[Rfam]
RNA: Purine riboswitch aptamer
Organism: Metabacillus indicus
RNA sequence: AACUAAUUAAACAUCUUUUCUCGUAUAAUUUUGGAAAUAAGGUCCAAAAGUUUCUACCGAACUGCCGUAAAAAGUUUGACUGCGGGGAUUAUAUUAGAACAG
Numbered sequence: 001a002a003c004u005a006a007u008u009a010a011a012c013a014u015c016u017u018u019u020c021u022c023g024u025a026u027a028a029u030u031u032u033g034g035a036a037a038u039a040a041g042g043u044c045c046a047a048a049a050g051u052u053u054c055u056a057c058c059g060a061a062c063u064g065c066c067g068u069a070a071a072a073a074g075u076u077u078g079a080c081u082g083c084g085g086g087g088a089u090u091a092u093a094u095u096a097g098a099a100c101a102g
Stems, first nucleotide, its partner, number of pairs: 018088008029049007058078006